[Rfam]
RNA sequence: CUCUUCGAAAUGCAUUUAGGUGCAGCGUCAUGUGUUUGCCUAUGGGGGUAGAGCACUGAAUGGGCUAGGGGGCAUACCGCUUACUGAACCCAAUCAAACUCCGAAUACCAUAGGUUUAGAGCAUGGCAGUGAGACUGCGGGUGAGAAGGUCCGUAGUCGAGAGGGUAAGAGCCCAGACCGUCGGCUAAGGUCCCGGAGUGUGUACUAAGUGGGAAAGGAUGUGAAGAUGGUUAGACAACCAGGAGGUUGGCUUAGAAGCAGCCACCCUUUAAAGAAAGCGUAACAGCUCACUGGUCUAGCGUUUUUGCGCCGAAGAUAUAACGGGGCUAAGUACACCACCGAAGCCACGGACUUGAUCUUUAAGAUUGAGUGGUAGAAGAGCAUUCUGUUCAGCGUUGAAUGUAUACUGUAAGGUAUGCUGGAGCGGACGGAAGAGAUAAU
Numbered sequence: 001c002u003c004u005u006c007g008a009a010a011u012g013c014a015u016u017u018a019g020g021u022g023c024a025g026c027g028u029c030a031u032g033u034g035u036u037u038g039c040c041u042a043u044g045g046g047g048g049u050a051g052a053g054c055a056c057u058g059a060a061u062g063g064g065c066u067a068g069g070g071g072g073c074a075u076a077c078c079g080c081u082u083a084c085u086g087a088a089c090c091c092a093a094u095c096a097a098a099c100u101c102c103g104a105a106u107a108c109c110a111u112a113g114g115u116u117u118a119g120a121g122c123a124u125g126g127c128a129g130u131g132a133g134a135c136u137g138c139g140g141g142u143g144a145g146a147a148g149g150u151c152c153g154u155a156g157u158c159g160a161g162a163g164g165g166u167a168a169g170a171g172c173c174c175a176g177a178c179c180g181u182c183g184g185c186u187a188a189g190g191u192c193c194c195g196g197a198g199u200g201u202g203u204a205c206u207a208a209g210u211g212g213g214a215a216a217g218g219a220u221g222u223g224a225a226g227a228u229g230g231u232u233a234g235a236c237a238a239c240c241a242g243g244a245g246g247u248u249g250g251c252u253u254a255g256a257a258g259c260a261g262c263c264a265c266c267c268u269u270u271a272a273a274g275a276a277a278g279c280g281u282a283a284c285a286g287c288u289c290a291c292u293g294g295u296c297u298a299g300c301g302u303u304u305u306u307g308c309g310c311c312g313a314a315g316a317u318a319u320a321a322c323g324g325g326g327c328u329a330a331g332u333a334c335a336c337c338a339c340c341g342a343a344g345c346c347a348c349g350g351a352c353u354u355g356a357u358c359u360u361u362a363a364g365a366u367u368g369a370g371u372g373g374u375a376g377a378a379g380a381g382c383a384u385u386c387u388g389u390u391c392a393g394c395g396u397u398g399a400a401u402g403u404a405u406a407c408u409g410u411a412a413g414g415u416a417u418g419c420u421g422g423a424g425c426g427g428a429c430g431g432a433a434g435a436g437a438u439a440a441u
Stems, first nucleotide, its partner, number of pairs: 001381006011024005026129001027127007036120001038115008051102001052100002057096003061092004068085002070082004133158010163174003178350004183346003189340003198337001200336006217311002221308009238295005244268003249263003269273001274289001278287002351371008382436001384433007393425002402419007
Dot-bracket structure: ((((((....(((((....))))).((((((((..(.((((((((.....(((...(((.((((...((((((.....)))).))...)))).)))..)).).....))))))))....)))))))).)...((((((((((......))))))))))....(((......)))...((((.(((...(((......(.((((((...........((..(((((((((........(((((.(((..(((.........)))..)))(...)(...((......)).).)))))....))))))))).))...................))))))))))...)))))))((((((((.....))))))))....))))))(.(((((((..((.......(((((((....)))))))....)).)))))))..).....
Notes:
The record is a 441-nucleotide part of an RNA from Denitrovibrio acetiphilus, which matches "Bacterial large subunit ribosomal RNA" in Rfam. The source organism's lineage runs through Bacteria, Pseudomonadati, Deferribacteres, Deferribacterales and Denitrovibrio acetiphilus. Rfam links the family to the GO terms ribosome and structural constituent of ribosome. Its Rfam clan is "LSU clan".